About this RNA
The family of this 330-nucleotide sequence from Halosegnis rubeus is "Archaeal RNase P". Rfam's curators write: Ribonuclease P (RNase P) is a ubiquitous endoribonuclease, found in archaea, bacteria and eukarya as well as chloroplasts and mitochondria. The family's consensus secondary structure is taken from published work. The match comes from Rfam's covariance-model search (175 bits). The literature on the family includes a 1999 paper in Nucleic Acids Res by Brown, "The Ribonuclease P Database". The family's RNA type in Rfam is ribozyme.

RNA sequence: GGCAGAGGGAGUCCGGCCACCGCCUUACCGGGAGUAGGACCCCGGUGGCGAGGAAAGUCCCCCCACCGACCGGGCAGGCGACUGGACACACGUCCAGAGCGGGAGACCGCUGGCACUGGAACAGCAACGACACGUCCACUCCGGAGUGAUGAUGCGCGCGACCCGACCCGCGAGGGAAGGAAGCUAACCCGCAAAACGCCGAUGGAGUGGGAGCGAUGGAACGGCGAAUCCUCGCCGGUGCAAGCCCGUCGUUCAUUGGUAGCCCGGAGACCGCGACGGGUGCUCAGCCGAAUGCCGGACCGAACAGAAGGGGGCUUACUCCCCUCAGCC
Numbered sequence: 001g002g003c004a005g006a007g008g009g010a011g012u013c014c015g016g017c018c019a020c021c022g023c024c025u026u027a028c029c030g031g032g033a034g035u036a037g038g039a040c041c042c043c044g045g046u047g048g049c050g051a052g053g054a055a056a057g058u059c060c061c062c063c064c065a066c067c068g069a070c071c072g073g074g075c076a077g078g079c080g081a082c083u084g085g086a087c088a089c090a091c092g093u094c095c096a097g098a099g100c101g102g103g104a105g106a107c108c109g110c111u112g113g114c115a116c117u118g119g120a121a122c123a124g125c126a127a128c129g130a131c132a133c134g135u136c137c138a139c140u141c142c143g144g145a146g147u148g149a150u151g152a153u154g155c156g157c158g159c160g161a162c163c164c165g166a167c168c169c170g171c172g173a174g175g176g177a178a179g180g181a182a183g184c185u186a187a188c189c190c191g192c193a194a195a196a197c198g199c200c201g202a203u204g205g206a207g208u209g210g211g212a213g214c215g216a217u218g219g220a221a222c223g224g225c226g227a228a229u230c231c232u233c234g235c236c237g238g239u240g241c242a243a244g245c246c247c248g249u250c251g252u253u254c255a256u257u258g259g260u261a262g263c264c265c266g267g268a269g270a271c272c273g274c275g276a277c278g279g280g281u282g283c284u285c286a287g288c289c290g291a292a293u294g295c296c297g298g299a300c301c302g303a304a305c306a307g308a309a310g311g312g313g314g315c316u317u318a319c320u321c322c323c324c325u326c327a328g329c330c
Stems, first nucleotide, its partner, number of pairs: 001330003005326005010320002012299006021050004055317003059314005064240004070266001072264002077236005082097005098111005112231002117227001119225001133215003136210008154184002244281009